[Rfam]
RNA sequence: UCAUUCAAGUGCAUCAAUGGAACUGUUUCUUCUGGUUUAGAAGGACUAUUGACUAUUGAUG
Numbered sequence: 001u002c003a004u005u006c007a008a009g010u011g012c013a014u015c016a017a018u019g020g021a022a023c024u025g026u027u028u029c030u031u032c033u034g035g036u037u038u039a040g041a042a043g044g045a046c047u048a049u050u051g052a053c054u055a056u057u058g059a060u061g
Base pairs, nucleotide, nucleotide: 014052015051016050017049018048019047027045028044029043030042031041032040033039

mir-9418 microRNA precursor family: a 61-nucleotide RNA sequence from Nematostella vectensis. The family's consensus secondary structure was predicted with RNAalifold. It is one of the family's seed sequences.